[Rfam]
RNA sequence: GAGAACUGAUAAUCCAAGGAGUGGAAUGACAGGGUAACGCCUUGAAACGCUCCCCUUAAUACUCCGACUGGCAUUUAUGGCGAAAGCUUAUAGAUGUCAGAAGCUCGGUGAAGUCGUCUGAGAGUGACCGUAGAUUGUUAAGGUUUAACAAUCCGAAAACUGUCCAGAGGUGGAUGGUGUCACCUACAGGUCGGAGGUCUAUAAA
Numbered sequence: 001g002a003g004a005a006c007u008g009a010u011a012a013u014c015c016a017a018g019g020a021g022u023g024g025a026a027u028g029a030c031a032g033g034g035u036a037a038c039g040c041c042u043u044g045a046a047a048c049g050c051u052c053c054c055c056u057u058a059a060u061a062c063u064c065c066g067a068c069u070g071g072c073a074u075u076u077a078u079g080g081c082g083a084a085a086g087c088u089u090a091u092a093g094a095u096g097u098c099a100g101a102a103g104c105u106c107g108g109u110g111a112a113g114u115c116g117u118c119u120g121a122g123a124g125u126g127a128c129c130g131u132a133g134a135u136u137g138u139u140a141a142g143g144u145u146u147a148a149c150a151a152u153c154c155g156a157a158a159a160c161u162g163u164c165c166a167g168a169g170g171u172g173g174a175u176g177g178u179g180u181c182a183c184c185u186a187c188a189g190g191u192c193g194g195a196g197g198u199c200u201a202u203a204a205a
Base pairs, nucleotide, nucleotide: 018053019052020051021050022049023048031043032042033041034040054197055196056195057194064108065107066106067105068100069099070098071097072096073095074094075093076092077091078090079089080088115193116192118190119189124183125182126181127180128179129155130154136150137149138148139147140146141145159178160177161176162175163174164173165172166171